[Rfam]
RNA sequence: UGUCUCCUCUAUGUCUACCCAAAUUGAUAUAGAUUUUGCCCACUUUCGAGUGGGCAUUUUUUU
Numbered sequence: 001u002g003u004c005u006c007c008u009c010u011a012u013g014u015c016u017a018c019c020c021a022a023a024u025u026g027a028u029a030u031a032g033a034u035u036u037u038g039c040c041c042a043c044u045u046u047c048g049a050g051u052g053g054g055c056a057u058u059u060u061u062u063u
Stems, first nucleotide, its partner, number of pairs: 008033008037056008
RNA: Betaproteobacteria toxic small RNA
Organism: Oxalobacteraceae bacterium IMCC9480